[Rfam]
RNA sequence: AGAUGCUCCAUCUGUAAAUGGAUAAGACGUUAGUCUUAUUGUAUAAGAGUUAUUGAAAAAUAAAGGAGCAAUAAUUUCCUUCUUAUUCUCUUAAGAUAAGAGGGUCUUAUUGCUCCUUUAUU
Numbered sequence: 001a002g003a004u005g006c007u008c009c010a011u012c013u014g015u016a017a018a019u020g021g022a023u024a025a026g027a028c029g030u031u032a033g034u035c036u037u038a039u040u041g042u043a044u045a046a047g048a049g050u051u052a053u054u055g056a057a058a059a060a061u062a063a064a065g066g067a068g069c070a071a072u073a074a075u076u077u078c079c080u081u082c083u084u085a086u087u088c089u090c091u092u093a094a095g096a097u098a099a100g101a102g103g104g105u106c107u108u109a110u111u112g113c114u115c116c117u118u119u120a121u122u
Base pairs, nucleotide, nucleotide: 007022008021009020010019011018062119063118064117065116066115067114068113069112070111071110072109073108076101077100081096082095083094084093
Background
Plastid-psbA-1 3UTR RNA: a 122-nucleotide RNA from Coffea arabica. The base pairs follow the family's consensus structure, which was predicted with LocARNA. Lineage of the source: Eukaryota > Viridiplantae > Mesangiospermae > Gentianales > Coffea. Rfam's curators write: Plastid psbA-1 is a non-coding RNA (ncRNA) present in plastids. It was identified in inverted repeat sequences in the 3 prime untranslate region (3UTR) of photosystem II quinone-binding protein (psbA).